[Rfam]
RNA sequence: GGAGGGAUGGCUGAGUGGUCGAAAGCGGCGGUCUUGAAAACCGCAGUAGGCGCAAGCCUACCGGGGGUUCGAAUCCCUCUCCCUCCG
Numbered sequence: 001g002g003a004g005g006g007a008u009g010g011c012u013g014a015g016u017g018g019u020c021g022a023a024a025g026c027g028g029c030g031g032u033c034u035u036g037a038a039a040a041c042c043g044c045a046g047u048a049g050g051c052g053c054a055a056g057c058c059u060a061c062c063g064g065g066g067g068u069u070c071g072a073a074u075c076c077c078u079c080u081c082c083c084u085c086c087g
Base pairs, nucleotide, nucleotide: 001086002085003084004083005082006081007080010026011025012024028044029043030042031041032040063079064078065077066076067075

Rfam assigns this 87-nucleotide RNA from Meiothermus sp. QL-1 to the family "tRNA". Taxonomically the source falls in Meiothermus (Bacteria, Deinococcota, Deinococci, Thermales). Gene Ontology term of the family: triplet codon-amino acid adaptor activity. The base pairs follow the family's consensus structure, which is taken from published work. The family's RNA type in Rfam is transfer RNA.